[Rfam]
RNA sequence: AUGGAGCAGCUUUAUUGGGAAGAAUCUACCCAUGGCUCUUGAAAGAGAAGCAUACAUGGAGGAUAUUGUGUAGAUUCUUCACACUUCUACUCCACUUUCAACACAGUUUGCCUAAGGCCUUAUACUAUGUAGCAGAGGGAAAUUAAAGCAUUCUCCAGCUCCAAAGUUUUAUAUGUAUCAGAAGCUUUAAUUUGGGUACAGCCUUGGCAAACCGGCAAGUCACAAGAAGGCACUAAUGGACACUCCUAUAUAUACAUAUAGAAGGGUCCU
Numbered sequence: 001a002u003g004g005a006g007c008a009g010c011u012u013u014a015u016u017g018g019g020a021a022g023a024a025u026c027u028a029c030c031c032a033u034g035g036c037u038c039u040u041g042a043a044a045g046a047g048a049a050g051c052a053u054a055c056a057u058g059g060a061g062g063a064u065a066u067u068g069u070g071u072a073g074a075u076u077c078u079u080c081a082c083a084c085u086u087c088u089a090c091u092c093c094a095c096u097u098u099c100a101a102c103a104c105a106g107u108u109u110g111c112c113u114a115a116g117g118c119c120u121u122a123u124a125c126u127a128u129g130u131a132g133c134a135g136a137g138g139g140a141a142a143u144u145a146a147a148g149c150a151u152u153c154u155c156c157a158g159c160u161c162c163a164a165a166g167u168u169u170u171a172u173a174u175g176u177a178u179c180a181g182a183a184g185c186u187u188u189a190a191u192u193u194g195g196g197u198a199c200a201g202c203c204u205u206g207g208c209a210a211a212c213c214g215g216c217a218a219g220u221c222a223c224a225a226g227a228a229g230g231c232a233c234u235a236a237u238g239g240a241c242a243c244u245c246c247u248a249u250a251u252a253u254a255c256a257u258a259u260a261g262a263a264g265g266g267u268c269c270u
Base pairs, nucleotide, nucleotide: 058092059091106212107211108210109209110208111207125201126200242267243266244265245264
This 270-nucleotide RNA sequence from Arachis hypogaea belongs to the Rfam family "Early nodulin 40". Its family is annotated with nodulation in the Gene Ontology. The family has 35 seed sequences and 341 matches in Rfam 15.1. Rfam classes the family as a non-coding RNA gene. It scores 86 bits against the family's covariance model.